[Rfam]
RNA: Selenocysteine insertion sequence 1
RNA sequence: CUGGCACCCAUGACAGUCUGCCUAAAAACCAGCCCCUGGUGGGGCAGACUCGAGAACCUGGCGUG
Numbered sequence: 001c002u003g004g005c006a007c008c009c010a011u012g013a014c015a016g017u018c019u020g021c022c023u024a025a026a027a028a029c030c031a032g033c034c035c036c037u038g039g040u041g042g043g044g045c046a047g048a049c050u051c052g053a054g055a056a057c058c059u060g061g062c063g064u065g
Stems, first nucleotide, its partner, number of pairs: 001065001004062002015050009030038003